Overview: This 75-nucleotide RNA from Ornithorhynchus anatinus belongs to the Rfam family "mir-23 microRNA precursor family". Its family is annotated with RISC complex and gene silencing by miRNA in the Gene Ontology. On this family, see Chen et al., Genes Dev 2005: "The developmental miRNA profiles of zebrafish as determined by small RNA cloning". It is one of the family's seed sequences. Rfam 15.1 lists 1,403 matches to the family in 646 species.

RNA sequence: CGGCGGCUGGGGUUCCUGGUGAUGCGAUUUUCUUGUGCUCGCCAAAAUCACAUUGCCAGGGAUUUCCAACUGGCG
Numbered sequence: 001c002g003g004c005g006g007c008u009g010g011g012g013u014u015c016c017u018g019g020u021g022a023u024g025c026g027a028u029u030u031u032c033u034u035g036u037g038c039u040c041g042c043c044a045a046a047a048u049c050a051c052a053u054u055g056c057c058a059g060g061g062a063u064u065u066c067c068a069a070c071u072g073g074c075g
Base pairs, nucleotide, nucleotide: 001075002074004072005071006070010067011066012063013062014061015060016059017058018057019056020055021054022053023052024051026049027048028047029046030045